[Rfam]
Plastid-psbA-1 3UTR RNA: a 113-nucleotide sequence from Capsicum baccatum. The match comes from Rfam's covariance-model search (89 bits). Rfam classes the family as a cis-regulatory element. Plastid psbA-1 is a non-coding RNA (ncRNA) present in plastids.
RNA sequence: UCAAAGAUCCAUCUACAAAUAGAUAAGAUCCCAGUCUAGUCUAUAGGAGGUUUUUUAAAAAAAGGAGCAAUAAUCAUUUUUUUGUUUUAUCAAGAGGGUGCUAUUGCUCCUUU
Numbered sequence: 001u002c003a004a005a006g007a008u009c010c011a012u013c014u015a016c017a018a019a020u021a022g023a024u025a026a027g028a029u030c031c032c033a034g035u036c037u038a039g040u041c042u043a044u045a046g047g048a049g050g051u052u053u054u055u056u057a058a059a060a061a062a063a064g065g066a067g068c069a070a071u072a073a074u075c076a077u078u079u080u081u082u083u084g085u086u087u088u089a090u091c092a093a094g095a096g097g098g099u100g101c102u103a104u105u106g107c108u109c110c111u112u113u
Stems, first nucleotide, its partner, number of pairs: 008023002011020002061113012075100003079096005